[Rfam]
RNA sequence: GGCUCUGUGAUUACAUGCCUGAUUACAGGCAAUAUACGCUAUUCCGAUUUCAGAUAUGAGCUGACAUUUUUGGAAAUCUGAUGAGAGCC
Numbered sequence: 001g002g003c004u005c006u007g008u009g010a011u012u013a014c015a016u017g018c019c020u021g022a023u024u025a026c027a028g029g030c031a032a033u034a035u036a037c038g039c040u041a042u043u044c045c046g047a048u049u050u051c052a053g054a055u056a057u058g059a060g061c062u063g064a065c066a067u068u069u070u071u072g073g074a075a076a077u078c079u080g081a082u083g084a085g086a087g088c089c
Stems, first nucleotide, its partner, number of pairs: 001089005
Small nucleolar RNA U54: an 89-nucleotide RNA sequence from Acer yangbiense. Its Rfam clan is "U54 clan". From the family's description: U54 is a C/D box small nucleolar RNA, which acts as a methylation guide for 18S ribosomal RNA in plants. Rfam links the family to the GO terms nucleolus and RNA processing. Pairs were carried over by alignment from the consensus structure, which was predicted with PFOLD. Lineage of the source: Eukaryota > Viridiplantae > Euphyllophyta > Spermatophyta > Acer.